[Rfam]
Nucleotides: 078
Stems, first nucleotide, its partner, number of pairs: 001078006009032004037070008
Number, partner (000 for none) and nucleotide at each position: 001078u002077u003076a004075c005074u006073g007000g008000a009032u010031g011030g012029g013000a014000g015000u016000u017000a018000u019000a020000c021000c022000g023000c024000a025000g026000u027000g028000g029012u030011c031010c032009a033000u034000u035000g036000u037070c038069a039068g040067a041066c042065a043064u044063c045000g046000a047000a048000g049000a050000a051000g052000a053000g054000c055000g056000a057000c058000c059000g060000u061000c062000a063044g064043g065042u066041g067040u068039u069038u070037g071000g072000a073006c074005a075004g076003u077002a078001a
The family of this 78-nucleotide RNA sequence from Stanieria cyanosphaera is "CyVA-1 RNA".
Cyanobacteria, Acidobacteria (1 example), Verrucomicrobia (1 example).
The sequence is in the family's curated seed alignment.
Rfam classes the family as a small RNA.
The source organism's lineage runs through Bacteria, Cyanobacteriota, Pleurocapsales, Stanieria and Stanieria cyanosphaera.